[Rfam]
RNA sequence: UGGCGGAAGGACACCACAAGGAGUGGAUUAUGCGGCUUAAUUUGACUCAACGCGGGACAACUCACCAGAGCCUAUGUGCAGGAGACAGUGAGCUUUGAGAGCGGACUGGAUAGUACUUUGAGUGGUGCAUGGCCGUUUGCAACACGUGAGGUGACUUGUCAGGUUUACUCCGGUAACGUGUGAUGUGCUGUAUGCAAGUAUUUUUGUGAGACUGCAGGCGGUAAGCCUGAUGAAGCGGCGCUAUAACAGGUCAGUGAUGCCCUUGGAUGUUCUGGGCUGCACGCGUAAUACAGUGGGUGCUGUAGAUAUAUAUAGGUGGAAAAGGGCCCGAGACUGGGAUCAUGCUUUGUAAGAAGGAAUGUGAACGUGGAAUUCCUAGUAAUCGCUGCUCACUAAGUAGCGAUGAAUGAGUCCCUGUUCUUUGCACACACCGCCCGUCGCUAUCUGAGAUGGAUGUUUUUAUGAAGAUGCUGCUGUUAGAGGCAUUUGAGUAAGGACGACUAGAUUAGAUAUAAGUCGUAACAAGGCAGCGGUAGAAGAAUCUGCCGCUAGAUCAUAC
Numbered sequence: 001u002g003g004c005g006g007a008a009g010g011a012c013a014c015c016a017c018a019a020g021g022a023g024u025g026g027a028u029u030a031u032g033c034g035g036c037u038u039a040a041u042u043u044g045a046c047u048c049a050a051c052g053c054g055g056g057a058c059a060a061c062u063c064a065c066c067a068g069a070g071c072c073u074a075u076g077u078g079c080a081g082g083a084g085a086c087a088g089u090g091a092g093c094u095u096u097g098a099g100a101g102c103g104g105a106c107u108g109g110a111u112a113g114u115a116c117u118u119u120g121a122g123u124g125g126u127g128c129a130u131g132g133c134c135g136u137u138u139g140c141a142a143c144a145c146g147u148g149a150g151g152u153g154a155c156u157u158g159u160c161a162g163g164u165u166u167a168c169u170c171c172g173g174u175a176a177c178g179u180g181u182g183a184u185g186u187g188c189u190g191u192a193u194g195c196a197a198g199u200a201u202u203u204u205u206g207u208g209a210g211a212c213u214g215c216a217g218g219c220g221g222u223a224a225g226c227c228u229g230a231u232g233a234a235g236c237g238g239c240g241c242u243a244u245a246a247c248a249g250g251u252c253a254g255u256g257a258u259g260c261c262c263u264u265g266g267a268u269g270u271u272c273u274g275g276g277c278u279g280c281a282c283g284c285g286u287a288a289u290a291c292a293g294u295g296g297g298u299g300c301u302g303u304a305g306a307u308a309u310a311u312a313u314a315g316g317u318g319g320a321a322a323a324g325g326g327c328c329c330g331a332g333a334c335u336g337g338g339a340u341c342a343u344g345c346u347u348u349g350u351a352a353g354a355a356g357g358a359a360u361g362u363g364a365a366c367g368u369g370g371a372a373u374u375c376c377u378a379g380u381a382a383u384c385g386c387u388g389c390u391c392a393c394u395a396a397g398u399a400g401c402g403a404u405g406a407a408u409g410a411g412u413c414c415c416u417g418u419u420c421u422u423u424g425c426a427c428a429c430a431c432c433g434c435c436c437g438u439c440g441c442u443a444u445c446u447g448a449g450a451u452g453g454a455u456g457u458u459u460u461u462a463u464g465a466a467g468a469u470g471c472u473g474c475u476g477u478u479a480g481a482g483g484c485a486u487u488u489g490a491g492u493a494a495g496g497a498c499g500a501c502u503a504g505a506u507u508a509g510a511u512a513u514a515a516g517u518c519g520u521a522a523c524a525a526g527g528c529a530g531c532g533g534u535a536g537a538a539g540a541a542u543c544u545g546c547c548g549c550u551a552g553a554u555c556a557u558a559c
Base pairs, nucleotide, nucleotide: 001428002427003425004424005423007422008421009420010419011418012417013416016412017411020376021375022374023373024372025291027289028288029287030286031285032284033283034282035280036279041056042055043054044053065275066274067273068272069271070270071269076116077115078114079113086108087107088106089105121263122262124261125260126259127258130257131255132251133250134249135247136246137245142181143180144179145178146177147176148157149156150155160173162171163170187239188238189237190236202209203208212232215229216228217227218226219225295329296328297327298326300324336366341361342360343359345357346356347355382404383403384402385401386400387399388398389397433523436519437518439516442512443511444510445509446508447507448506451503452502453501455499456498457497458496459495460494461493462492463491466488467487468486469485470484471483472482529550530549531548532547533546534545535544536543537542
Record summary
The record is a 559-nucleotide part of an RNA from Anncaliia algerae, which matches "Microsporidia small subunit ribosomal RNA" in Rfam. On this family, see Cannone et al., BMC Bioinformatics 2002: "The comparative RNA web (CRW) site: an online database of comparative sequence and structure information for ribosomal, intron, and other RNAs". The organism belongs to Anncaliia, within Eukaryota.